[Rfam]
RNA sequence: CUCUUAUCAAGAGUAGGUGGAGGGACUAGCCCUAUGAAGCCCGGCAACCGACAGUUCCGUUUUAUGACGGAAGUGCACGGUGCUAAUUCUUGCGGGAACGAGCAACAACCGUUUCUGGGAGAUGAGAG
Numbered sequence: 001c002u003c004u005u006a007u008c009a010a011g012a013g014u015a016g017g018u019g020g021a022g023g024g025a026c027u028a029g030c031c032c033u034a035u036g037a038a039g040c041c042c043g044g045c046a047a048c049c050g051a052c053a054g055u056u057c058c059g060u061u062u063u064a065u066g067a068c069g070g071a072a073g074u075g076c077a078c079g080g081u082g083c084u085a086a087u088u089c090u091u092g093c094g095g096g097a098a099c100g101a102g103c104a105a106c107a108a109c110c111g112u113u114u115c116u117g118g119g120a121g122a123u124g125a126g127a128g
Stems, first nucleotide, its partner, number of pairs: 001128008013042001016041003022032003026092001028090002043084004048080002050076001053074001088120001093117008

This 128-nucleotide sequence from Paenibacillus flagellatus belongs to the Rfam family "SAM riboswitch aptamer (S box leader)". The match comes from Rfam's covariance-model search (69 bits).